[Rfam]
RNA: Bacterial large signal recognition particle RNA
RNA sequence: CUGUGCUAGCUGGGGAGGUAGCGGUGCCCUGUACUUGCAACCCGCUGUAGCAAGAGUGAUGCUUCGGCUGCGGCAGUAUCUUGUGAGGUCUGCCUCUAGCAAGUAGUGUUGAUAGUUGGGUCUUACGCAAUAUUCACUUAUGAACCGUGUCAGGUCUUGACGGAAGCAGCACUAAGUAAGACCGAAUAUGUGCCGUAAGGGUGCCUAAUUUGAGCUAACUACUAGAGUAACGCUUGUAAGGUAUUGUCAAAGCGAAGUGCACAG
Numbered sequence: 001c002u003g004u005g006c007u008a009g010c011u012g013g014g015g016a017g018g019u020a021g022c023g024g025u026g027c028c029c030u031g032u033a034c035u036u037g038c039a040a041c042c043c044g045c046u047g048u049a050g051c052a053a054g055a056g057u058g059a060u061g062c063u064u065c066g067g068c069u070g071c072g073g074c075a076g077u078a079u080c081u082u083g084u085g086a087g088g089u090c091u092g093c094c095u096c097u098a099g100c101a102a103g104u105a106g107u108g109u110u111g112a113u114a115g116u117u118g119g120g121u122c123u124u125a126c127g128c129a130a131u132a133u134u135c136a137c138u139u140a141u142g143a144a145c146c147g148u149g150u151c152a153g154g155u156c157u158u159g160a161c162g163g164a165a166g167c168a169g170c171a172c173u174a175a176g177u178a179a180g181a182c183c184g185a186a187u188a189u190g191u192g193c194c195g196u197a198a199g200g201g202u203g204c205c206u207a208a209u210u211u212g213a214g215c216u217a218a219c220u221a222c223u224a225g226a227g228u229a230a231c232g233c234u235u236g237u238a239a240g241g242u243a244u245u246g247u248c249a250a251a252g253c254g255a256a257g258u259g260c261a262c263a264g
Stems, first nucleotide, its partner, number of pairs: 001264006009057003012030004017025001019023001034054005062257004067253003072248005078242010091229002095226005103219002105216003114210008122199006128190002131188005137180005147172004155164003